Overview:
U7 small nuclear RNA: a 68-nucleotide RNA sequence from Nomascus leucogenys. It scores 40 bits against the family's covariance model. The base pairs follow the family's consensus structure, which was predicted with PFOLD.
RNA sequence: UAGUAUUACAGCUCUUAUAGAAUUUGUCUACCAGAGUUUCUGGUUUUUGCCAUGAAAGAAAUGUCAUU
Numbered sequence: 001u002a003g004u005a006u007u008a009c010a011g012c013u014c015u016u017a018u019a020g021a022a023u024u025u026g027u028c029u030a031c032c033a034g035a036g037u038u039u040c041u042g043g044u045u046u047u048u049g050c051c052a053u054g055a056a057a058g059a060a061a062u063g064u065c066a067u068u
Stems, first nucleotide, its partner, number of pairs: 034065002037061005042051003